Shown here is a 172-nucleotide RNA from Erwinia sp. 198, a member of the family "sok antitoxin (CssrC)". Pairs were carried over by alignment from the consensus structure, which is taken from published work. On this family, see Peng et al., PLoS One 2011: "An integrated approach for finding overlooked genes in Shigella". Its family is annotated with mRNA binding in the Gene Ontology.

[Rfam]
RNA sequence: CGGUGCUUGAGGCUUUUUGCCUUAUGCCGUUGGUAGCGAUGCGGAUGGAGGCUGUGGCAGAAAGAAGAAAGCCCCGAAGGUCAUUUUUCAAUUAACCCACGAGGCGUUCUGCAUGACCAACAGCAUCAGAGUAGCCUCCUGCCCGCCGCAAGGCAAGGCGAAGGCAGCCAUG
Numbered sequence: 001c002g003g004u005g006c007u008u009g010a011g012g013c014u015u016u017u018u019g020c021c022u023u024a025u026g027c028c029g030u031u032g033g034u035a036g037c038g039a040u041g042c043g044g045a046u047g048g049a050g051g052c053u054g055u056g057g058c059a060g061a062a063a064g065a066a067g068a069a070a071g072c073c074c075c076g077a078a079g080g081u082c083a084u085u086u087u088u089c090a091a092u093u094a095a096c097c098c099a100c101g102a103g104g105c106g107u108u109c110u111g112c113a114u115g116a117c118c119a120a121c122a123g124c125a126u127c128a129g130a131g132u133a134g135c136c137u138c139c140u141g142c143c144c145g146c147c148g149c150a151a152g153g154c155a156a157g158g159c160g161a162a163g164g165c166a167g168c169c170a171u172g
Base pairs, nucleotide, nucleotide: 002074003073005072006071007070008069013064014063015062016061017060018059019058020057021056023054027050076100079097081094083092084091085090101138102137103136104135105134106132107131108130109129110128113126114125115124142164143163146160
Record summary: From the family's description: Also identified in Shigella as CssrC.